Small nucleolar RNA SNORA65: a 129-nucleotide RNA sequence from Trogon melanurus. Its family is annotated with nucleolus and RNA processing in the Gene Ontology. From the family's description: U65 belongs to the H/ACA class of snoRNAs which are thought to guide the sites of modification of uridines to pseudouridines. Its Rfam clan is "SNORA65 clan". For this family Rfam cites "RNomics: an experimental approach that identifies 201 candidates for novel, small, non-messenger RNAs in mouse" (Huttenhofer et al., EMBO J, 2001).

RNA sequence: CCUGCCACUGUACCUGCCCUCGAUUCCGUGGCUGGUGCGUUCCAGUGGUGAGCUGAGAGGAAGCCCCAGCCCAGGAAGCAGCCCUCUCCUCCUCGUGGGGAGGCCUGUGCCGAAAGGUUGGGAACAGGU
Numbered sequence: 001c002c003u004g005c006c007a008c009u010g011u012a013c014c015u016g017c018c019c020u021c022g023a024u025u026c027c028g029u030g031g032c033u034g035g036u037g038c039g040u041u042c043c044a045g046u047g048g049u050g051a052g053c054u055g056a057g058a059g060g061a062a063g064c065c066c067c068a069g070c071c072c073a074g075g076a077a078g079c080a081g082c083c084c085u086c087u088c089c090u091c092c093u094c095g096u097g098g099g100g101a102g103g104c105c106u107g108u109g110c111c112g113a114a115a116g117g118u119u120g121g122g123a124a125c126a127g128g129u
Base pairs, nucleotide, nucleotide: 005048006047007046008045009044010043018035019034023029064122065121066120068119070116074111075110079107080106081105083103084102087099088098089097